[Rfam]
The family of this 60-nucleotide RNA from Tupaia belangeri is "mir-22 microRNA precursor family". Rfam 15.1 lists 884 matches to the family in 639 species.
RNA sequence: AGUUCUUCAGUGGCAAGCUUUAUGUCCUGACCCAGCUAAAGCUGCCAGUUGAAGAACUGU
Numbered sequence: 001a002g003u004u005c006u007u008c009a010g011u012g013g014c015a016a017g018c019u020u021u022a023u024g025u026c027c028u029g030a031c032c033c034a035g036c037u038a039a040a041g042c043u044g045c046c047a048g049u050u051g052a053a054g055a056a057c058u059g060u
Stems, first nucleotide, its partner, number of pairs: 003056006012046003016043007